The record is a 129-nucleotide sequence from Centaurea solstitialis, which matches "U11 spliceosomal RNA" in Rfam. A search with the family's covariance model found it, with a score of 76 bits. Pairs were carried over by alignment from the consensus structure, which is taken from published work. NCBI's taxonomy places the organism under Eukaryota, Pentapetalae, Asterales, Carduoideae, Centaurea. Its family is annotated with pre-mRNA 5'-splice site binding, mRNA 5'-splice site recognition and U11 snRNP in the Gene Ontology.
RNA sequence: UAAAAGGGUCAGUUGGCUAAAUAUGCCAUGCUUGCCAAGAGAUUGGCAAGUGCUGUAUGGCUAUCAAGACAUAUGGCUGACAUAAUUUGUGGAAACUUAUAGGGUUGGCUCCUUUUAGCCGACCCUCCU
Number, nucleotide and partner (000 for none) at each position: 001u000002a000003a000004a000005a000006g000007g000008g081009u080010c079011a078012g077013u000014u028015g027016g026017c025018u000019a000020a000021a000022u000023a000024u000025g017026c016027c015028a014029u052030g051031c050032u049033u048034g047035c046036c045037a044038a043039g000040a000041g000042a000043u038044u037045g036046g035047c034048a033049a032050g031051u030052g029053c076054u075055g074056u073057a072058u071059g070060g000061c000062u000063a000064u000065c000066a000067a000068g000069a000070c059071a058072u057073a056074u055075g054076g053077c012078u011079g010080a009081c008082a000083u000084a000085a000086u000087u000088u000089g000090u000091g000092g000093a000094a000095a000096c000097u000098u000099a000100u000101a126102g125103g124104g123105u122106u121107g120108g119109c000110u000111c000112c118113u117114u000115u000116u000117a113118g112119c108120c107121g106122a105123c104124c103125c102126u101127c000128c000129u000